[Rfam]
RNA sequence: CCUGCCGAAGUUUCCCUCAGGAUAGCAGAAACUCGUCAUCAGAUUUAUGUGGUAAAGCGAAUGAUUAGAGGCCUUGGGGUCGAAACGACCUUAACCUAUUCUCAAACUUUAAAUAUGUAAGAACGAGCCGUCUCUUGGUUGGACCGCUCGGCGAUUGAGAGUUUCUAGUGGGCCAUUUUUGGUAAGCAGAACUGGCGAUGCGGGAUGAACCGAACGGGAGGUUAAGGUGCCGGAAUACACGCUCAUCAGACACCACAAAAGGUGUUAGUUCAUCUAGACAGCAGGACGGUGGCCAUGGAAGUCGGAAUCCGCUAAGGAGUGUGUAACAACUCACCUGCCGAAUGAACUAGCCCUGAAAAUGGAUGGCGCUCAAGCGUGUUACCCAUACCUCCCCGUCAGCGUUGAAGUGACGCGCUGACGAGUAGGCAGGCGUGGAGGUCGUGAAGAAGCCUUGGCAGCGAUGCUGGGUAGAACCGCCUCUAGUGCAGAU
Numbered sequence: 001c002c003u004g005c006c007g008a009a010g011u012u013u014c015c016c017u018c019a020g021g022a023u024a025g026c027a028g029a030a031a032c033u034c035g036u037c038a039u040c041a042g043a044u045u046u047a048u049g050u051g052g053u054a055a056a057g058c059g060a061a062u063g064a065u066u067a068g069a070g071g072c073c074u075u076g077g078g079g080u081c082g083a084a085a086c087g088a089c090c091u092u093a094a095c096c097u098a099u100u101c102u103c104a105a106a107c108u109u110u111a112a113a114u115a116u117g118u119a120a121g122a123a124c125g126a127g128c129c130g131u132c133u134c135u136u137g138g139u140u141g142g143a144c145c146g147c148u149c150g151g152c153g154a155u156u157g158a159g160a161g162u163u164u165c166u167a168g169u170g171g172g173c174c175a176u177u178u179u180u181g182g183u184a185a186g187c188a189g190a191a192c193u194g195g196c197g198a199u200g201c202g203g204g205a206u207g208a209a210c211c212g213a214a215c216g217g218g219a220g221g222u223u224a225a226g227g228u229g230c231c232g233g234a235a236u237a238c239a240c241g242c243u244c245a246u247c248a249g250a251c252a253c254c255a256c257a258a259a260a261g262g263u264g265u266u267a268g269u270u271c272a273u274c275u276a277g278a279c280a281g282c283a284g285g286a287c288g289g290u291g292g293c294c295a296u297g298g299a300a301g302u303c304g305g306a307a308u309c310c311g312c313u314a315a316g317g318a319g320u321g322u323g324u325a326a327c328a329a330c331u332c333a334c335c336u337g338c339c340g341a342a343u344g345a346a347c348u349a350g351c352c353c354u355g356a357a358a359a360u361g362g363a364u365g366g367c368g369c370u371c372a373a374g375c376g377u378g379u380u381a382c383c384c385a386u387a388c389c390u391c392c393c394c395g396u397c398a399g400c401g402u403u404g405a406a407g408u409g410a411c412g413c414g415c416u417g418a419c420g421a422g423u424a425g426g427c428a429g430g431c432g433u434g435g436a437g438g439u440c441g442u443g444a445a446g447a448a449g450c451c452u453u454g455g456c457a458g459c460g461a462u463g464c465u466g467g468g469u470a471g472a473a474c475c476g477c478c479u480c481u482a483g484u485g486c487a488g489a490u
Stems, first nucleotide, its partner, number of pairs: 001430006011024001013022003027166007044121007055110001056108002062104003067099001069097003074094006081087001124150005130144003172196004177191005201212003216393005222387001226383003235380001237379001240376003260354003264351010281338005287311003293305002312316001317332001321330002394420009431485001433482007441474002449469002455464003